[Rfam]
RNA: mir-339 microRNA precursor family
RNA sequence: UGGGGUGGCCGUCCUCCCUGUCCUCCAGGAGCUCACGUAUGCCUGCCUGUGAGCGCCUCGACGACAGAGCCGGCGUCCACUACCUGCCAUGG
Numbered sequence: 001u002g003g004g005g006u007g008g009c010c011g012u013c014c015u016c017c018c019u020g021u022c023c024u025c026c027a028g029g030a031g032c033u034c035a036c037g038u039a040u041g042c043c044u045g046c047c048u049g050u051g052a053g054c055g056c057c058u059c060g061a062c063g064a065c066a067g068a069g070c071c072g073g074c075g076u077c078c079a080c081u082a083c084c085u086g087c088c089a090u091g092g
Stems, first nucleotide, its partner, number of pairs: 005080004010075004016069001018067003022063001024061002027058003031054006037046003
Dot-bracket structure: ....((((.((((..(.(((.(.((.(((.(((((((((....)))..)))))).))).)).).))).)..)))).))))............